The family of this 89-nucleotide RNA sequence from Geotrypetes seraphini is "mir-15 microRNA precursor family".

RNA sequence: GUCAGCAGUGCUUUAGCAGCACGUAAAUAUUGGAGUUGAGCCUCUCUAGAUAUCUCCAGUAUUAACUGUGCUGCUGAAGUAAAGUUGGC
Numbered sequence: 001g002u003c004a005g006c007a008g009u010g011c012u013u014u015a016g017c018a019g020c021a022c023g024u025a026a027a028u029a030u031u032g033g034a035g036u037u038g039a040g041c042c043u044c045u046c047u048a049g050a051u052a053u054c055u056c057c058a059g060u061a062u063u064a065a066c067u068g069u070g071c072u073g074c075u076g077a078a079g080u081a082a083a084g085u086u087g088g089c
Stems, first nucleotide, its partner, number of pairs: 001089006013077011024065001026063010

This family represents the related mir-15a and mir-15b sequences.
The literature on the family includes a 2001 paper in Science by Lagos-Quintana et al., "Identification of novel genes coding for small expressed RNAs".
It scores 77 bits against the family's covariance model.